[Rfam]
RNA sequence: AAGGGUUUACGAGCAAAACUGGUAUCAUUGCAAGGUUCGAAACUUAAUAAAUACCCUAGCGCUUAAAGACACUCACCUCCCGCAUAAACAAGCCCCGGGUUGGUCUUUUUGGGGGUUUUGAGCGUCGGAUGGAGCAGGGACUGGAGAUGGUUUGUCACCC
Numbered sequence: 001a002a003g004g005g006u007u008u009a010c011g012a013g014c015a016a017a018a019c020u021g022g023u024a025u026c027a028u029u030g031c032a033a034g035g036u037u038c039g040a041a042a043c044u045u046a047a048u049a050a051a052u053a054c055c056c057u058a059g060c061g062c063u064u065a066a067a068g069a070c071a072c073u074c075a076c077c078u079c080c081c082g083c084a085u086a087a088a089c090a091a092g093c094c095c096c097g098g099g100u101u102g103g104u105c106u107u108u109u110u111g112g113g114g115g116u117u118u119u120g121a122g123c124g125u126c127g128g129a130u131g132g133a134g135c136a137g138g139g140a141c142u143g144g145a146g147a148u149g150g151u152u153u154g155u156c157a158c159c160c
Base pairs, nucleotide, nucleotide: 019034020033022031023030024029054139055138056137057136061135062134063133064132068126069125070124072122073121074120075119079115080114081113085111086110087109088108093103094102

Shown here is a 160-nucleotide RNA sequence from Polynucleobacter sp. UB-Raua-W9, a member of the family "carA ncRNA motif". It is annotated as a cis-regulatory element. The base pairs follow the family's consensus structure, which is taken from published work. Rfam's curators write: carA ncRNA motif was reported as a Strong Riboswitch Candidate CarA ncRNA motif was located upstream of carA gene which codes for the small subunit of carbamoyl phosphate synthase, which is an enzyme that catalyses the first committed step in pyrimidine and arginine biosynthesis. It is proposed as a possible cis-regulatory element.